[Rfam]
RNA sequence: CCAGAACUUAAAUGUGGAUGUGCUUGUUUUACUCCUGAAAAGUAAGUGCUUCCAUGUUUUAGUGAUGG
Numbered sequence: 001c002c003a004g005a006a007c008u009u010a011a012a013u014g015u016g017g018a019u020g021u022g023c024u025u026g027u028u029u030u031a032c033u034c035c036u037g038a039a040a041a042g043u044a045a046g047u048g049c050u051u052c053c054a055u056g057u058u059u060u061a062g063u064g065a066u067g068g
Stems, first nucleotide, its partner, number of pairs: 001068003006063003010059009020049009
The family of this 68-nucleotide sequence from Crypturellus soui is "mir-302 microRNA precursor family". The base pairs follow the family's consensus structure, which was predicted with RNAalifold. Taxonomically the source falls in Crypturellus (Eukaryota, Eumetazoa, Sarcopterygii, Saurischia). Its Rfam clan is "mir-290 clan". Rfam 15.1 lists 2,090 matches to the family in 516 species. A search with the family's covariance model found it, with a score of 66 bits. A reference for the family is Mineno et al. (2006), "The expression profile of microRNAs in mouse embryos", Nucleic Acids Res.